[Rfam]
Shown here is a 74-nucleotide sequence from Silurus meridionalis, a member of the family "mir-133 microRNA precursor family". The organism belongs to Silurus, within Eukaryota. Gene Ontology terms of the family: miRNA-mediated post-transcriptional gene silencing and RISC complex. mir-133 was first experimentally characterised in mouse and homologues have since been discovered in several other species. The mature sequence is excised from the 3' arm of the hairpin. A search with the family's covariance model found it, with a score of 58 bits.

RNA sequence: UCUUAGUGGCUGGUAAACCGGAACCAAGUCAGGAGUCUCAGUGAGGUUUGGUCCCCUUCAACCAGCUACUGCGC
Numbered sequence: 001u002c003u004u005a006g007u008g009g010c011u012g013g014u015a016a017a018c019c020g021g022a023a024c025c026a027a028g029u030c031a032g033g034a035g036u037c038u039c040a041g042u043g044a045g046g047u048u049u050g051g052u053c054c055c056c057u058u059c060a061a062c063c064a065g066c067u068a069c070u071g072c073g074c
Base pairs, nucleotide, nucleotide: 004071005070006069008067009066010065011064012063013062014061017058020054021053022052024051025050026049027048028047029046030045